[Rfam]
RNA sequence: UCCUUCGUGAGAAGGAAUCUGAAGGAGGCCGGCGGUAAAUCUCUGGCCUGACGAACAGGAAGCAGAUUAGGCAAAGAUGUGUGGGUGAGUUUGCAUAACAAAACAAAGCCCGAAACUAUCCGAAACACAUUGUUGUAGAUCUGACAGGUAUAUGAAGGAUCUUUAAA
Numbered sequence: 001u002c003c004u005u006c007g008u009g010a011g012a013a014g015g016a017a018u019c020u021g022a023a024g025g026a027g028g029c030c031g032g033c034g035g036u037a038a039a040u041c042u043c044u045g046g047c048c049u050g051a052c053g054a055a056c057a058g059g060a061a062g063c064a065g066a067u068u069a070g071g072c073a074a075a076g077a078u079g080u081g082u083g084g085g086u087g088a089g090u091u092u093g094c095a096u097a098a099c100a101a102a103a104c105a106a107a108g109c110c111c112g113a114a115a116c117u118a119u120c121c122g123a124a125a126c127a128c129a130u131u132g133u134u135g136u137a138g139a140u141c142u143g144a145c146a147g148g149u150a151u152a153u154g155a156a157g158g159a160u161c162u163u164u165a166a167a
Stems, first nucleotide, its partner, number of pairs: 001016006035162001040156001042154001044152002046149005063143004071136003076131006083111004089104004